[Rfam]
RNA sequence: CAAGGAGGGCUUUAGUAUUCCAAAACUGUUUAAAAAACGAUCAAAAGACACUGGACGCUACGCCGUCCUGAACAAUACUUAAGCUGCUGACGCGUCAUCAUUCCCCAAAUGACUCGGCAGUAGAGGUGCCAAAGGACUCGCGCGCCUUUGUUUUACUCCUAAUGGUCUUGACCCGGCUUCACCCCCCAGAAUCCGG
Numbered sequence: 001c002a003a004g005g006a007g008g009g010c011u012u013u014a015g016u017a018u019u020c021c022a023a024a025a026c027u028g029u030u031u032a033a034a035a036a037a038c039g040a041u042c043a044a045a046a047g048a049c050a051c052u053g054g055a056c057g058c059u060a061c062g063c064c065g066u067c068c069u070g071a072a073c074a075a076u077a078c079u080u081a082a083g084c085u086g087c088u089g090a091c092g093c094g095u096c097a098u099c100a101u102u103c104c105c106c107a108a109a110u111g112a113c114u115c116g117g118c119a120g121u122a123g124a125g126g127u128g129c130c131a132a133a134g135g136a137c138u139c140g141c142g143c144g145c146c147u148u149u150g151u152u153u154u155a156c157u158c159c160u161a162a163u164g165g166u167c168u169u170g171a172c173c174c175g176g177c178u179u180c181a182c183c184c185c186c187c188a189g190a191a192u193c194c195g196g
Stems, first nucleotide, its partner, number of pairs: 039167005086121004091116002094113001096111003122149008130140001173196004178191003

Background:
A member of the RNA family "RgsA sRNA" from Pseudomonas syringae, 196 nucleotides long. The literature on the family includes a 2006 paper in Nucleic Acids Res by Livny et al., "Identification of 17 Pseudomonas aeruginosa sRNAs and prediction of sRNA-encoding genes in 10 diverse pathogens using the bioinformatic tool sRNAPredict2". This small RNA (sRNA) was computationally identified in the genome of the opportunistic pathogen Pseudomonas aeruginosa and its expression verified by northern blot analysis. P16 sRNA appears to be conserved across several Pseudomonas species and Azotobacter vinelandii. In these species it is consistently located downstream of a predicted TatD deoxyribonuclease gene. P16 has a predicted Rho independent terminator at the 3' end but the function of P16 is unknown. It has been shown that this sRNA is transcribed from an RpoS-dependent promoter under positive, probably indirect GacA control in two Pseudomonas species. It was renamed RgsA (for regulation by GacA and stress).RpoS mRNA expression is repressed by RgsA during the exponential phase. The Hfq RNA chaperone is required for the repression. Taxonomically the source falls in Pseudomonas syringae pv. syringae (Bacteria, Gammaproteobacteria, Pseudomonadaceae, Pseudomonas syringae group genomosp. 1). Its family is annotated with response to hydrogen peroxide, sRNA-mediated gene silencing and response to oxidative stress in the Gene Ontology. Rfam's curators put it in the seed alignment.